[Rfam]
RNA sequence: UUUGAGGGGAAUGUUGUCUGGCUCGAGGCCAUCAACUAGAUCUAUGGAUUUUUUUUCAUAUAUCAAAGUUUGAGAGAUGAUGAUGAUUUAAUCAUUAAUCAUAGGUUAAUGACGUCGGACCAGGCUUCAUUCCCCCCAAU
Numbered sequence: 001u002u003u004g005a006g007g008g009g010a011a012u013g014u015u016g017u018c019u020g021g022c023u024c025g026a027g028g029c030c031a032u033c034a035a036c037u038a039g040a041u042c043u044a045u046g047g048a049u050u051u052u053u054u055u056u057c058a059u060a061u062a063u064c065a066a067a068g069u070u071u072g073a074g075a076g077a078u079g080a081u082g083a084u085g086a087u088u089u090a091a092u093c094a095u096u097a098a099u100c101a102u103a104g105g106u107u108a109a110u111g112a113c114g115u116c117g118g119a120c121c122a123g124g125c126u127u128c129a130u131u132c133c134c135c136c137c138a139a140u
Stems, first nucleotide, its partner, number of pairs: 002139003006135008016125006024117003

The record is a 140-nucleotide sequence from Gossypium mustelinum, which matches "mir-166 microRNA precursor family" in Rfam. The family's consensus secondary structure was predicted with PFOLD. Gene Ontology terms of the family: miRNA-mediated post-transcriptional gene silencing and RISC complex. For this family Rfam cites "MicroRNAs in plants" (Reinhart et al., Genes Dev, 2002). NCBI's taxonomy places the organism under Eukaryota, Magnoliopsida, rosids, Malvales, Gossypium. About the family: This family represents the plant microRNA (miRNA) precursor mir-166.